[Rfam]
Description
MIR8565 microRNA precursor family: a 154-nucleotide RNA sequence from Amborella trichopoda. The organism belongs to Amborella, within Eukaryota. Its family is annotated with RISC complex and miRNA-mediated post-transcriptional gene silencing in the Gene Ontology.
RNA sequence: CCCCCACCCAUGUGUAUAGGACCCCAAAUGAUCACCAUUGAAUUUGGCACGGAGCUUUAAAAAAGUUAUCACAUCGGUAUGAAACUUGACUUUUUUAGAGAUCCGUGUCAAAUUUAAUGGUAAUCCUUUGGGGUCCUACACACAUGGGUGGGGG
Number, nucleotide and partner (000 for none) at each position: 001c000002c153003c152004c151005c150006a149007c148008c147009c146010a145011u144012g143013u142014g000015u140016a000017u138018a137019g136020g135021a134022c133023c132024c131025c130026a129027a128028a127029u000030g125031a124032u123033c000034a121035c120036c119037a118038u117039u116040g115041a114042a113043u112044u111045u110046g109047g108048c107049a106050c105051g104052g103053a102054g000055c100056u099057u098058u097059a096060a095061a094062a093063a092064a091065g090066u089067u088068a087069u082070c081071a080072c000073a078074u000075c000076g000077g000078u073079a000080u071081g070082a069083a000084a000085c000086u000087u068088g067089a066090c065091u064092u063093u062094u061095u060096u059097a058098g057099a056100g055101a000102u053103c052104c051105g050106u049107g048108u047109c046110a045111a044112a043113u042114u041115u040116a039117a038118u037119g036120g035121u034122a000123a032124u031125c030126c000127u028128u027129u026130g025131g024132g023133g022134u021135c020136c019137u018138a017139c000140a015141c000142a013143c012144a011145u010146g009147g008148g007149u006150g005151g004152g003153g002154g000